[Rfam]
RNA sequence: UCAAACCGUCGCGACUGGCGUCUGGGUGGGUCACCACCGGGGAGCGACUGUUACGGAAUUCGACCGCGCGCCUGGGCCGAUGAC
Numbered sequence: 001u002c003a004a005a006c007c008g009u010c011g012c013g014a015c016u017g018g019c020g021u022c023u024g025g026g027u028g029g030g031u032c033a034c035c036a037c038c039g040g041g042g043a044g045c046g047a048c049u050g051u052u053a054c055g056g057a058a059u060u061c062g063a064c065c066g067c068g069c070g071c072c073u074g075g076g077c078c079g080a081u082g083a084c
Base pairs, nucleotide, nucleotide: 004052005051006050008048009047010046011045012044015041016040017072018071019070020069021068026037027036028035029034061079062078064076065075

About this RNA: ZMP/ZTP riboswitch aptamer (pfl RNA motif): an 84-nucleotide RNA from Microbacterium sp. CH12i. Gene Ontology terms of the family: regulation of purine nucleotide biosynthetic process and one-carbon metabolic process. NCBI's taxonomy places the organism under Bacteria, Bacillati, Actinomycetota, Actinomycetes, Microbacterium.